[Rfam]
RNA sequence: CUUCACGGACCCGAGCCACAGCGGCUCGUCGCCCUGCCGGUCCUGGCCGUAGGUCGCCAGGAGCGCCUCCGCCUC
Numbered sequence: 001c002u003u004c005a006c007g008g009a010c011c012c013g014a015g016c017c018a019c020a021g022c023g024g025c026u027c028g029u030c031g032c033c034c035u036g037c038c039g040g041u042c043c044u045g046g047c048c049g050u051a052g053g054u055c056g057c058c059a060g061g062a063g064c065g066c067c068u069c070c071g072c073c074u075c
Stems, first nucleotide, its partner, number of pairs: 014026004038065002043060003047056001049054001
This 75-nucleotide RNA sequence from Streptomyces subrutilus belongs to the Rfam family "ASpks TB sRNA". NCBI's taxonomy places the organism under Bacteria, Bacillati, Actinomycetota, Actinomycetes, Streptomyces. It is annotated as an antisense RNA. On this family, see Arnvig and Young, Mol Microbiol 2009: "Identification of small RNAs in Mycobacterium tuberculosis".